RNA sequence: GACGGAGCUAGAUUUAGUGUUGCAAUUGCUAGACCGUUAGUCACUACG
Numbered sequence: 001g002a003c004g005g006a007g008c009u010a011g012a013u014u015u016a017g018u019g020u021u022g023c024a025a026u027u028g029c030u031a032g033a034c035c036g037u038u039a040g041u042c043a044c045u046a047c048g
Stems, first nucleotide, its partner, number of pairs: 001037001004034001008032002011030001012027001015046005
Rfam assigns this 48-nucleotide RNA from Umbravirus nicotianae to the family "Exoribonuclease-resistant RNA (xrRNA) plant-infecting virus (class 3)". Gene Ontology term of the family: viral RNA genome replication. NCBI's taxonomy places the organism under Viruses, Orthornavirae, Tombusviridae, Calvusvirinae, Umbravirus nicotianae. About the family: Exoribonuclease-resistant RNA (xrRNA) plant-infecting virus (class 3) is a ncRNA that was reported in Plant viruses. Rfam classes the family as a cis-regulatory element. For this family Rfam cites "The pseudoknot structure of a viral RNA reveals a conserved mechanism for programmed exoribonuclease resistance" (Gezelle et al., bioRxiv [Preprint], 2024).